ZMP/ZTP riboswitch aptamer (pfl RNA motif): a 99-nucleotide sequence from Salinibacterium sp.
It scores 54 bits against the family's covariance model.
NCBI's taxonomy places the organism under Bacteria, Bacillati, Micrococcales, Microbacteriaceae, Salinibacterium.
RNA sequence: UAGGCCUGUCGCAACUGGCGUUGAGAUGGGCAACCAUCGGGGAGCGACCGCUGUCCUCACGACGGCAGCACGAUUGGGCCGUACGCCUGGGCCCACCGG
Numbered sequence: 001u002a003g004g005c006c007u008g009u010c011g012c013a014a015c016u017g018g019c020g021u022u023g024a025g026a027u028g029g030g031c032a033a034c035c036a037u038c039g040g041g042g043a044g045c046g047a048c049c050g051c052u053g054u055c056c057u058c059a060c061g062a063c064g065g066c067a068g069c070a071c072g073a074u075u076g077g078g079c080c081g082u083a084c085g086c087c088u089g090g091g092c093c094c095a096c097c098g099g
Base pairs, nucleotide, nucleotide: 004052006050008048009047010046011045012044015041016040017087018086019085020084021083026037027036028035029034076094077093078092079091080090
Dot-bracket structure: ...(.(.(((((..(([[[[[....((((....))))..))..))))).).).......................(((((..]]]]]..))))).....